Nucleotides: 048
Stems, first nucleotide, its partner, number of pairs: 001026006007018004
Number, partner (000 for none) and nucleotide at each position: 001026u002025g003024g004023g005022c006021u007018g008017g009016u010015c011000a012000u013000a014000a015010g016009a017008c018007c019000c020000g021006g022005g023004u024003c025002c026001a027000u028000c029000u030000a031000u032000u033000a034000g035000u036000g037000g038000g039000u040000a041000a042000g043000a044000c045000a046000c047000c048000c